[Rfam]
Nucleotides: 266
Stems, first nucleotide, its partner, number of pairs: 001015004018264002022260002028255007040246010051235003068227003072223002075221004080216001082211005087205003091200009102140003106135002109131001111129005117124002141146001150190003154187002160183003167176003
Number, partner (000 for none) and nucleotide at each position: 001015a002014a003013g004012c005000u006000g007000u008000a009000a010000u011000g012004g013003c014002u015001u016000c017000a018264g019263a020000c021000u022260g023259g024000g025000a026000a027000g028255g029254u030253u031252u032251u033250c034249a035000u036000a037000u038000c039000u040246c041245u042244c043243u044242c045241u046240c047239u048238u049237u050000a051235g052234u053233c054000u055000g056000u057000u058000a059000c060000u061000a062000a063000u064000c065000c066000a067000a068227c069226g070225a071000g072223c073222g074000c075221u076220g077219a078218g079000c080216g081000c082211c083210c084209g085208g086207u087205u088204c089203g090000a091200a092199u093198c094197u095196c096195g097194u098193g099192g100000u101000g102140g103139c104138c105000a106135u107134c108000c109131g110000c111129c112128c113127g114126u115125g116000a117124g118123a119000g120000u121000a122000a123118u124117c125115c126114g127113c128112g129111g130000u131109c132000u133000c134107g135106a136000g137000u138104g139103g140102u141146c142000u143000u144000a145000a146141g147000a148000a149000u150190g151189a152188g153000a154187a155186a156000c157000a158000u159000c160183c161182u162181u163000c164000a165000g166000g167176g168175a169174a170000g171000u172000a173000a174169u175168u176167c177000u178000g179000c180000a181162g182161a183160g184000a185000a186155u187154u188152c189151u190150c191000c192099c193098c194097a195096u196095g197094a198093g199092a200091u201000g202000g203089c204088g205087a206000u207086a208085c209084c210083g211082g212000a213000u214000u215000a216080c217000a218078c219077u220076c221075g222073c223072g224000u225070u226069c227068g228000g229000u230000a231000u232000a233053g234052a235051c236000a237049a238048a239047a240046g241045a242044g243043a244042g245041a246040g247000a248000g249034u250033g251032a252031a253030a254029a255028u256000c257000a258000a259023c260022u261000u262000u263019u264018u265000u266000u

Annotation
Fungal signal recognition particle RNA: a 266-nucleotide RNA from Terfezia boudieri. Pairs were carried over by alignment from the consensus structure, which is taken from published work. Rfam links the family to the GO terms SRP-dependent cotranslational protein targeting to membrane, signal sequence recognition, signal recognition particle, plasma membrane targeting and signal recognition particle, endoplasmic reticulum targeting. The family's RNA type in Rfam is non-coding RNA gene. Clan: SRP clan. NCBI's taxonomy places the organism under Eukaryota, Opisthokonta, Dikarya, Terfezia, Terfezia boudieri. A reference for the family is Wild et al. (2002), "Towards the structure of the mammalian signal recognition particle", Curr Opin Struct Biol.